[Rfam]
RNA sequence: GUGUAGAAGCUGUGUAAGUCGCUCUGGAUAAGAGCGUCUGCUAAAUGCCCGUAA
Numbered sequence: 001g002u003g004u005a006g007a008a009g010c011u012g013u014g015u016a017a018g019u020c021g022c023u024c025u026g027g028a029u030a031a032g033a034g035c036g037u038c039u040g041c042u043a044a045a046u047g048c049c050c051g052u053a054a
Stems, first nucleotide, its partner, number of pairs: 013043001014041003020036006

Shown here is a 54-nucleotide sequence from Anguilla anguilla, a member of the family "UnaL2 LINE 3' element". A reference for the family is Baba et al. (2004), "Solution structure of an RNA stem-loop derived from the 3' conserved region of eel LINE UnaL2", RNA. A search with the family's covariance model found it, with a score of 63 bits. NCBI's taxonomy places the organism under Eukaryota, Deuterostomia, Actinopteri, Anguilliformes, Anguilla. Rfam links the family to the GO term transposition, RNA-mediated. Rfam classes the family as a cis-regulatory element. About the family: The eel long interspersed element (LINE) UnaL2 and its partner short interspersed element (SINE) share a conserved 3' tail containing a stem-loop that is critical for their retrotransposition.